[Rfam]
This 102-nucleotide RNA from Ruminiclostridium hungatei belongs to the Rfam family "Purine riboswitch aptamer". NCBI's taxonomy places the organism under Bacteria, Bacillati, Bacillota, Oscillospiraceae, Ruminiclostridium. Pairs were carried over by alignment from the consensus structure, which is taken from published work. From the family's description: Riboswitches are metabolite binding domains within certain messenger RNAs that serve as precision sensors for their corresponding targets. It scores 81 bits against the family's covariance model.
RNA sequence: UGUGUAUAUUAAAAAAUAUCCCGUAUAUUCUCGGUGAUAUGGUCCGAAAGUUUCUACGAAGCCGCCGUAAAUGGCUUUGCUACGGGUGUUCAUCUUUGACAU
Number, nucleotide and partner (000 for none) at each position: 001u000002g000003u000004g000005u000006a000007u000008a000009u000010u000011a000012a000013a000014a000015a000016a000017u000018a000019u000020c086021c085022c084023g083024u082025a081026u000027a000028u000029u049030c000031u047032c046033g045034g044035u000036g000037a000038u000039a000040u000041g000042g000043u000044c034045c033046g032047a031048a000049a029050g000051u000052u000053u000054c000055u000056a000057c000058g078059a077060a076061g075062c074063c073064g072065c000066c000067g000068u000069a000070a000071a000072u064073g063074g062075c061076u060077u059078u058079g000080c000081u025082a024083c023084g022085g021086g020087u000088g000089u000090u000091c000092a000093u000094c000095u000096u000097u000098g000099a000100c000101a000102u000